[Rfam]
RNA sequence: ACCACCACUAUCACUGGCGUAUCGGUGGUGAACCCAGCCUCUUUUAGCCAGUCGUUUUUAAGGUGCAGGCUGGGGGGCGGCUGUGAUAUUUAGUCAUUUUAGUGGCGCGUUGCUCAUGGCGAAUACUG
Numbered sequence: 001a002c003c004a005c006c007a008c009u010a011u012c013a014c015u016g017g018c019g020u021a022u023c024g025g026u027g028g029u030g031a032a033c034c035c036a037g038c039c040u041c042u043u044u045u046a047g048c049c050a051g052u053c054g055u056u057u058u059u060a061a062g063g064u065g066c067a068g069g070c071u072g073g074g075g076g077g078c079g080g081c082u083g084u085g086a087u088a089u090u091u092a093g094u095c096a097u098u099u100u101a102g103u104g105g106c107g108c109g110u111u112g113c114u115c116a117u118g119g120c121g122a123a124u125a126c127u128g
Stems, first nucleotide, its partner, number of pairs: 027081001029079002033075003049072004053065004106121003
Rfam assigns this 128-nucleotide sequence from Lonsdalea quercina to the family "isrA Hfq binding RNA".
On this family, see Padalon-Brauch et al., Nucleic Acids Res 2008: "Small RNAs encoded within genetic islands of Salmonella typhimurium show host-induced expression and role in virulence".
It scores 57 bits against the family's covariance model.
Lineage of the source: Bacteria > Pseudomonadota > Enterobacterales > Pectobacteriaceae > Lonsdalea.
The family has 10 seed sequences and 34 matches in Rfam 15.1.
The family's RNA type in Rfam is small RNA.